[Rfam]
RNA sequence: GAUUGGGGAGAACGGCAGCGGGGAACAGACAGCGCAUGGAUGGAGUCCUCAACAAAACCUUUGCCUUCCUCUCUUUGUUGGGCCUCUACUCAUGCACUGCCUCUUCCCUGGCUGCCUUCAUAUUCUCAUCU
Numbered sequence: 001g002a003u004u005g006g007g008g009a010g011a012a013c014g015g016c017a018g019c020g021g022g023g024a025a026c027a028g029a030c031a032g033c034g035c036a037u038g039g040a041u042g043g044a045g046u047c048c049u050c051a052a053c054a055a056a057a058c059c060u061u062u063g064c065c066u067u068c069c070u071c072u073c074u075u076u077g078u079u080g081g082g083c084c085u086c087u088a089c090u091c092a093u094g095c096a097c098u099g100c101c102u103c104u105u106c107c108c109u110g111g112c113u114g115c116c117u118u119c120a121u122a123u124u125c126u127c128a129u130c131u
Stems, first nucleotide, its partner, number of pairs: 016114003019110007027102002030099003034095006043086002